The family of this 159-nucleotide RNA sequence from Xenorhabdus szentirmaii is "Molybdenum/Tungsten riboswitch aptamer (Moco RNA motif)". Rfam 15.1 lists 1,248 matches to the family in 836 species. The base pairs follow the family's consensus structure, which is taken from published work. Taxonomically the source falls in Xenorhabdus szentirmaii (Bacteria, Gammaproteobacteria, Morganellaceae, Xenorhabdus). The literature on the family includes a 2008 paper in Mol Microbiol by Regulski et al., "in molybdenum cofactor and tungsten cofactor metabolism". A search with the family's covariance model found it, with a score of 66 bits. Rfam links the family to the GO terms molybdenum ion binding, tungstate binding and regulation of gene expression.
RNA sequence: GAUAUUAUGUUAACCCUAGCCUCUGUGUCUAAGUCGCUGUUCUAUCAAAUGGAUACCACAUUGAUAUGAUGCUCUGGCCGUGGCUGCUGAGCCACCAGGAUGGCAAGGUAGAAAUACCGUCAUCUCCCGGACUUGGAAGGUGUUAUUGUGGAACAACUU
Number, nucleotide and partner (000 for none) at each position: 001g000002a000003u153004a000005u000006u150007a000008u000009g000010u000011u145012a144013a143014c142015c000016c140017u000018a000019g078020c077021c076022u000023c000024u000025g072026u071027g070028u069029c068030u000031a000032a000033g065034u064035c063036g062037c000038u000039g000040u000041u000042c000043u000044a000045u000046c000047a000048a000049a000050u000051g000052g000053a000054u000055a000056c000057c000058a000059c000060a000061u000062u036063g035064a034065u033066a000067u000068g029069a028070u027071g026072c025073u000074c000075u000076g021077g020078c019079c000080g095081u094082g093083g092084c091085u000086g000087c000088u000089g000090a000091g084092c083093c082094a081095c080096c000097a000098g125099g124100a123101u122102g121103g120104c000105a000106a000107g118108g117109u116110a115111g000112a000113a000114a000115u110116a109117c108118c107119g000120u103121c102122a101123u100124c099125u098126c136127c135128c000129g000130g000131a000132c000133u000134u000135g127136g126137a000138a000139g000140g016141u000142g014143u013144u012145a011146u000147u000148g000149u000150g006151g000152a000153a003154c000155a000156a000157c000158u000159u000